[Rfam]
RNA sequence: AGCUCGACGGGAUCGAUGGCGCGGGUGACCAGCAGGUAGUCGCGCAGGGCGAUCCCGUGCCGGUUCUC
Numbered sequence: 001a002g003c004u005c006g007a008c009g010g011g012a013u014c015g016a017u018g019g020c021g022c023g024g025g026u027g028a029c030c031a032g033c034a035g036g037u038a039g040u041c042g043c044g045c046a047g048g049g050c051g052a053u054c055c056c057g058u059g060c061c062g063g064u065u066c067u068c
Stems, first nucleotide, its partner, number of pairs: 004063003008059002011030001013028001016026002035056002038053001040052004
Dot-bracket structure: ...(((.((.(.(..((.......)).).)....((.(.((((.....))))).)).)).))).....
ASdes TB sRNA: a 68-nucleotide RNA sequence from Mycobacterium adipatum. It is annotated as a small RNA. On this family, see Arnvig and Young, Mol Microbiol 2009: "Identification of small RNAs in Mycobacterium tuberculosis". Pairs were carried over by alignment from the consensus structure, which is taken from published work. Taxonomically the source falls in Mycobacterium (Bacteria, Bacillati, Actinomycetes, Mycobacteriaceae). It scores 76 bits against the family's covariance model.